[Rfam]
RNA sequence: AUUAGGAGGAACGCAAUGAUGCGAAGCAUCAUUUUUUAAAUGCGUUCCGACGAGCUGCCGCGACCAGAAGAGUCGCGGCGAUACCCCUG
Numbered sequence: 001a002u003u004a005g006g007a008g009g010a011a012c013g014c015a016a017u018g019a020u021g022c023g024a025a026g027c028a029u030c031a032u033u034u035u036u037u038a039a040a041u042g043c044g045u046u047c048c049g050a051c052g053a054g055c056u057g058c059c060g061c062g063a064c065c066a067g068a069a070g071a072g073u074c075g076c077g078g079c080g081a082u083a084c085c086c087c088u089g
Stems, first nucleotide, its partner, number of pairs: 008048006016032006057079003061075002065070001